[Rfam]
A member of the RNA family "TPP riboswitch aptamer (THI element)" from Phragmitibacter flavus, 113 nucleotides long. A search with the family's covariance model found it, with a score of 70 bits. Taxonomically the source falls in Phragmitibacter (Bacteria, Verrucomicrobiota, Verrucomicrobiales, Verrucomicrobiaceae).
RNA sequence: UCUACAUCGCAGGGGUGCCCGUUGGUUGGCUGAGACUUCGUUCCUGGAAAGACGAAGGACCCUUUGAACCGGAUGCGGGUAAUGCCGCCGUCGGGAGCAAAGAAUCGCUCAGU
Numbered sequence: 001u002c003u004a005c006a007u008c009g010c011a012g013g014g015g016u017g018c019c020c021g022u023u024g025g026u027u028g029g030c031u032g033a034g035a036c037u038u039c040g041u042u043c044c045u046g047g048a049a050a051g052a053c054g055a056a057g058g059a060c061c062c063u064u065u066g067a068a069c070c071g072g073a074u075g076c077g078g079g080u081a082a083u084g085c086c087g088c089c090g091u092c093g094g095g096a097g098c099a100a101a102g103a104a105u106c107g108c109u110c111a112g113u
Stems, first nucleotide, its partner, number of pairs: 007100001009098002011063004016057001017030003021026001037056005069094004075088004